[Rfam]
RNA: ZMP/ZTP riboswitch aptamer (pfl RNA motif)
Organism: Rossellomorea aquimaris
RNA sequence: AUUAUUAGCAGUGACUGGCGAAAACGUGGAACGAACCACAGGGGAGCUGCGACUUUUUUUAUCAUCAGCCAUCAUGCCGAUCGCCUGGGCAAAAGGC
Numbered sequence: 001a002u003u004a005u006u007a008g009c010a011g012u013g014a015c016u017g018g019c020g021a022a023a024a025c026g027u028g029g030a031a032c033g034a035a036c037c038a039c040a041g042g043g044g045a046g047c048u049g050c051g052a053c054u055u056u057u058u059u060u061a062u063c064a065u066c067a068g069c070c071a072u073c074a075u076g077c078c079g080a081u082c083g084c085c086u087g088g089g090c091a092a093a094a095g096g097c
Base pairs, nucleotide, nucleotide: 004054006052008050009049010048011047012046015043016042017085018084019083020082021081026039027038028037029036075091076090077089078088